[Rfam]
RNA sequence: GAAUGGCAUGAGUGAUGAAUCAAUUAGAUGUGCUAAGCUAUGCUAUAUAGCUUAUGAGCUUAAACUAUUGAGGCAUUUUACACAAAUUCUGACAAUGCCACUC
Number, nucleotide and partner (000 for none) at each position: 001g103002a102003a000004u100005g099006g098007c097008a096009u095010g093011a000012g000013u000014g000015a000016u000017g000018a000019a000020u000021c000022a000023a000024u000025u000026a000027g000028a000029u000030g000031u000032g000033c000034u000035a000036a000037g000038c000039u000040a000041u000042g000043c000044u000045a000046u000047a000048u000049a000050g000051c000052u000053u000054a000055u000056g000057a000058g000059c000060u000061u000062a000063a000064a000065c000066u000067a000068u000069u000070g000071a000072g000073g000074c000075a000076u000077u000078u000079u000080a000081c000082a000083c000084a000085a000086a000087u000088u000089c000090u000091g000092a000093c010094a000095a009096u008097g007098c006099c005100a004101c000102u002103c001
RNA: Small nucleolar RNA Z266
Organism: Rhynchospora breviuscula